RNA: mir-338 microRNA precursor family
RNA sequence: UGGGGAACAACUUCCUGAUGCUGCCUGGGUGUGUCCAGCAGAACUCCAGCAUCAGUGAUUUUGUUGCCGG
Numbered sequence: 001u002g003g004g005g006a007a008c009a010a011c012u013u014c015c016u017g018a019u020g021c022u023g024c025c026u027g028g029g030u031g032u033g034u035c036c037a038g039c040a041g042a043a044c045u046c047c048a049g050c051a052u053c054a055g056u057g058a059u060u061u062u063g064u065u066g067c068c069g070g
Stems, first nucleotide, its partner, number of pairs: 006065005013058002015055009